[Rfam]
RNA sequence: AAGUCGGCAAAAUAGAUCCGUAACUUUGGGAUAAGGAUUGGCUCAGAAGAGCGGUGGGGGGGUCUGGGGGGUCCUUAGGGGCCCCCCACCGCCCCGCCCUCAACUCUGAACUGUUUCGGUCAAG
Numbered sequence: 001a002a003g004u005c006g007g008c009a010a011a012a013u014a015g016a017u018c019c020g021u022a023a024c025u026u027u028g029g030g031a032u033a034a035g036g037a038u039u040g041g042c043u044c045a046g047a048a049g050a051g052c053g054g055u056g057g058g059g060g061g062g063u064c065u066g067g068g069g070g071g072u073c074c075u076u077a078g079g080g081g082c083c084c085c086c087c088a089c090c091g092c093c094c095c096g097c098c099c100u101c102a103a104c105u106c107u108g109a110a111c112u113g114u115u116u117c118g119g120u121c122a123a124g
Base pairs, nucleotide, nucleotide: 015039016038017037018036019035024029040112041111043109044108045107046106047105049101050100051099053097054089055088056087057086058085059084060083061082113117
Eukaryotic large subunit ribosomal RNA: a 124-nucleotide part of an RNA from Dimargaris cristalligena.
The organism belongs to Dimargaris, within Eukaryota.
It scores 2522 bits against the family's covariance model.
Rfam 15.1 lists 107,465 matches to the family in 2,616 species.
A reference for the family is Cannone et al. (2002), "The comparative RNA web (CRW) site: an online database of comparative sequence and structure information for ribosomal, intron, and other RNAs", BMC Bioinformatics.
Rfam links the family to the GO terms ribosome and structural constituent of ribosome.